[Rfam]
RNA sequence: CCACGGUUCCAAGGCGGGGUGAGAUUCCCCACCGGCGGUUAUAGCCCGCAACUCCUGUCAAAUCAACAAAGCAAACAGCAAGACAGGACUGACGCAGUGAGAUUCUGCGGCCGACGGUAAAGUCCGGAUGAAAGGAGUUAUAU
Numbered sequence: 001c002c003a004c005g006g007u008u009c010c011a012a013g014g015c016g017g018g019g020u021g022a023g024a025u026u027c028c029c030c031a032c033c034g035g036c037g038g039u040u041a042u043a044g045c046c047c048g049c050a051a052c053u054c055c056u057g058u059c060a061a062a063u064c065a066a067c068a069a070a071g072c073a074a075a076c077a078g079c080a081a082g083a084c085a086g087g088a089c090u091g092a093c094g095c096a097g098u099g100a101g102a103u104u105c106u107g108c109g110g111c112c113g114a115c116g117g118u119a120a121a122g123u124c125c126g127g128a129u130g131a132a133a134g135g136a137g138u139u140a141u142a143u
Stems, first nucleotide, its partner, number of pairs: 003141001005139006017029003031123002033113002035049004044111002053088007093109005115126003
RNA: FMN riboswitch aptamer (RFN element)